The record is a 151-nucleotide RNA sequence from Trifolium pratense, which matches "U12 minor spliceosomal RNA" in Rfam. Rfam 15.1 lists 2,106 matches to the family in 1,170 species. Gene Ontology terms of the family: mRNA branch site recognition, pre-mRNA branch point binding and U12 snRNP.
[Rfam]
RNA sequence: UUGCCUUAAACUAAUGAGUAAGGAAAACAAAGCGAACGGUGAGAGCCGGUCGCAGCAUCUCACAACAUGAUGCAGUAAUUUUUGGAGGGGUAAUAGGCUGGCCGUGUGUUGACGCUGCUUACUUUGCAGAACUCACAUGUGCGGGCCUCCC
Number, nucleotide and partner (000 for none) at each position: 001u000002u000003g000004c023005c022006u021007u020008a019009a000010a000011c000012u000013a000014a000015u000016g000017a000018g000019u008020a007021a006022g005023g004024a000025a000026a000027a000028c000029a000030a000031a000032g053033c052034g051035a050036a000037c048038g047039g046040u000041g000042a000043g000044a000045g000046c039047c038048g037049g000050u035051c034052g033053c032054a000055g073056c072057a071058u070059c069060u000061c000062a000063c000064a000065a000066c000067a000068u000069g059070a058071u057072g056073c055074a000075g000076u000077a000078a000079u000080u000081u000082u000083u000084g000085g000086a000087g000088g000089g151090g150091u000092a000093a000094u000095a148096g147097g146098c145099u144100g000101g142102c000103c139104g138105u000106g136107u135108g134109u000110u000111g000112a000113c000114g000115c129116u128117g127118c126119u000120u000121a000122c000123u000124u000125u000126g118127c117128a116129g115130a000131a000132c000133u000134c108135a107136c106137a000138u104139g103140u000141g000142c101143g000144g099145g098146c097147c096148u095149c000150c090151c089
The pairing is the family consensus, mapped onto this sequence. The match comes from Rfam's covariance-model search (98 bits).